[Rfam]
Background:
Shown here is a 358-nucleotide RNA from Desulfovibrio ferrophilus, a member of the family "Bacterial RNase P class A". About the family: Ribonuclease P (RNase P) is a ubiquitous endoribonuclease, found in archaea, bacteria and eukarya as well as chloroplasts and mitochondria. It is annotated as a ribozyme. It scores 325 bits against the family's covariance model. The base pairs follow the family's consensus structure, which is taken from published work.
RNA sequence: GGAGCAGGACAGGCUAUCGCUGCGGUCGCUUGCGGCCGGAGAGGAAAGUCCGGGCUCCACAGGGCGGAACGCUGGAUAACAUCCAGGAGGGGUGACCCUCGGAACAGUGCCACAGAAAACAGACCGCCUGCUUGCAGGUAAGGGUGAAACGGUGGAGUAAGAGCCCACCAGCGGUUGUGGUGACACAACCGGCUAGGUAAACCCCGUUCGGAGCAAGGCCAAAUAGGAAGGUGUUUGAGGCUGGCCCGGCCAAAGCCUUCGGGUAGGCUGCUUGAGGCUGCGGGUAACCGUAGCCCUAGAGGAAUGAUAGCUGCCCCCUUGCGGGGAACAAAACCCGGCUUAUCGUCCAGCUCCCUUA
Numbered sequence: 001g002g003a004g005c006a007g008g009a010c011a012g013g014c015u016a017u018c019g020c021u022g023c024g025g026u027c028g029c030u031u032g033c034g035g036c037c038g039g040a041g042a043g044g045a046a047a048g049u050c051c052g053g054g055c056u057c058c059a060c061a062g063g064g065c066g067g068a069a070c071g072c073u074g075g076a077u078a079a080c081a082u083c084c085a086g087g088a089g090g091g092g093u094g095a096c097c098c099u100c101g102g103a104a105c106a107g108u109g110c111c112a113c114a115g116a117a118a119a120c121a122g123a124c125c126g127c128c129u130g131c132u133u134g135c136a137g138g139u140a141a142g143g144g145u146g147a148a149a150c151g152g153u154g155g156a157g158u159a160a161g162a163g164c165c166c167a168c169c170a171g172c173g174g175u176u177g178u179g180g181u182g183a184c185a186c187a188a189c190c191g192g193c194u195a196g197g198u199a200a201a202c203c204c205c206g207u208u209c210g211g212a213g214c215a216a217g218g219c220c221a222a223a224u225a226g227g228a229a230g231g232u233g234u235u236u237g238a239g240g241c242u243g244g245c246c247c248g249g250c251c252a253a254a255g256c257c258u259u260c261g262g263g264u265a266g267g268c269u270g271c272u273u274g275a276g277g278c279u280g281c282g283g284g285u286a287a288c289c290g291u292a293g294c295c296c297u298a299g300a301g302g303a304a305u306g307a308u309a310g311c312u313g314c315c316c317c318c319u320u321g322c323g324g325g326g327a328a329c330a331a332a333a334c335c336c337g338g339c340u341u342a343u344c345g346u347c348c349a350g351c352u353c354c355c356u357u358a
Stems, first nucleotide, its partner, number of pairs: 001354005007348004011343001012312007020041002023038006046341003050338005055213004062247004067209005072086005088099004102204001107202002109198003124143002126139005151169005171193001172191008217269004227260006239251004276295008
Dot-bracket structure: (((((.((((((((((((.((.((((((....)))))).))....[[[.[[[[[((((...[[[[.((((((((((.....))))).((((....))))..(....(((((............(((((((....)))))..)).......(((((.........))))).(((((((((....)))))))).)..)))..)).))))))))))...((((......((((((......((((.]]]]))))...)))))).....))))......((((((((....))))))))..........))))))).....................]]]]]]]].).)))).)))))....